[Rfam]
The family of this 227-nucleotide RNA from Olsenella sp. An188 is "RT-2 RNA". It scores 138 bits against the family's covariance model. Rfam classes the family as a small RNA.
RNA sequence: CCUGGCCAGACCGAGUAGGCCGCGAGGCCGAAAGCAGAGCCGUUUUGAGGAAGGAAGGCGUGACCAUCGGCCGCAAGGCCGUAAAUAUGCACCCCGCGCAGGCGGGCGGACGCUUCUUGCAUGGCCGGCCGGCUUCGGCGUUCACCCCGGUUUCAUGCCCGUCCUGCAAGCGGCUGCCAGAACGCCACUGCGAGCCGUGCGGGGUGCCCUCAUGAACUCGAACGACC
Numbered sequence: 001c002c003u004g005g006c007c008a009g010a011c012c013g014a015g016u017a018g019g020c021c022g023c024g025a026g027g028c029c030g031a032a033a034g035c036a037g038a039g040c041c042g043u044u045u046u047g048a049g050g051a052a053g054g055a056a057g058g059c060g061u062g063a064c065c066a067u068c069g070g071c072c073g074c075a076a077g078g079c080c081g082u083a084a085a086u087a088u089g090c091a092c093c094c095c096g097c098g099c100a101g102g103c104g105g106g107c108g109g110a111c112g113c114u115u116c117u118u119g120c121a122u123g124g125c126c127g128g129c130c131g132g133c134u135u136c137g138g139c140g141u142u143c144a145c146c147c148c149g150g151u152u153u154c155a156u157g158c159c160c161g162u163c164c165u166g167c168a169a170g171c172g173g174c175u176g177c178c179a180g181a182a183c184g185c186c187a188c189u190g191c192g193a194g195c196c197g198u199g200c201g202g203g204g205u206g207c208c209c210u211c212a213u214g215a216a217c218u219c220g221a222a223c224g225a226c227c
Stems, first nucleotide, its partner, number of pairs: 004041003019028002068081004089207009098167005103161005112120002123152006170198005